Description:
Shown here is a 67-nucleotide RNA from Eptatretus burgeri, a member of the family "Small nucleolar RNA SNORD20". U20 is a C/D box small nucleolar RNA that is encoded in intron 11 of the nucleolin gene in human, mouse and rat.

RNA sequence: UGGAUAUGAUGACUAAUGAAGAUCUGAAUCUUUUGAUGAGAAUUAAGACAGUCAAGUCCUGAUCCAG
Numbered sequence: 001u002g003g004a005u006a007u008g009a010u011g012a013c014u015a016a017u018g019a020a021g022a023u024c025u026g027a028a029u030c031u032u033u034u035g036a037u038g039a040g041a042a043u044u045a046a047g048a049c050a051g052u053c054a055a056g057u058c059c060u061g062a063u064c065c066a067g
Stems, first nucleotide, its partner, number of pairs: 001066004
On this family, see Nicoloso et al., Mol Cell Biol 1994: "U20, a novel small nucleolar RNA, is encoded in an intron of the nucleolin gene in mammals". Its family is annotated with nucleolus and RNA processing in the Gene Ontology. The family's RNA type in Rfam is C/D-box small nucleolar RNA. The family has 13 seed sequences and 573 matches in Rfam 15.1.